[Rfam]
RNA: Glycine riboswitch aptamer
RNA sequence: CGUCACCUCACUGGAGAGAGGCUGCCGCUGCGGUAUCGCGGCAGUCCACCGAAGGGGCAAGCGGAAGGGCGACACAGCCGCCUACCGUCAAUCUCUCAGGUAAAGCGGACAGCGAGGGCAAC
Numbered sequence: 001c002g003u004c005a006c007c008u009c010a011c012u013g014g015a016g017a018g019a020g021g022c023u024g025c026c027g028c029u030g031c032g033g034u035a036u037c038g039c040g041g042c043a044g045u046c047c048a049c050c051g052a053a054g055g056g057g058c059a060a061g062c063g064g065a066a067g068g069g070c071g072a073c074a075c076a077g078c079c080g081c082c083u084a085c086c087g088u089c090a091a092u093c094u095c096u097c098a099g100g101u102a103a104a105g106c107g108g109a110c111a112g113c114g115a116g117g118g119c120a121a122c
Stems, first nucleotide, its partner, number of pairs: 006117004011112003020046009048101003051097002055095003061088004